[Rfam]
RNA sequence: GCGCGAGUGGCGGAAUGGCAGACGCGCCACACUUAGGAUGUGGUGUCCGACGGACGUGGGGGUUCAAGUCCCCCCUCGCGCA
Numbered sequence: 001g002c003g004c005g006a007g008u009g010g011c012g013g014a015a016u017g018g019c020a021g022a023c024g025c026g027c028c029a030c031a032c033u034u035a036g037g038a039u040g041u042g043g044u045g046u047c048c049g050a051c052g053g054a055c056g057u058g059g060g061g062g063u064u065c066a067a068g069u070c071c072c073c074c075c076u077c078g079c080g081c082a
Stems, first nucleotide, its partner, number of pairs: 001081007010025003027043005058074005
The record is an 82-nucleotide sequence from Rhodococcus sp. Leaf258, which matches "tRNA" in Rfam. Pairs were carried over by alignment from the consensus structure, which is taken from published work. NCBI's taxonomy places the organism under Bacteria, Bacillati, Actinomycetota, Mycobacteriales, Rhodococcus. It scores 58 bits against the family's covariance model. Rfam classes the family as a transfer RNA.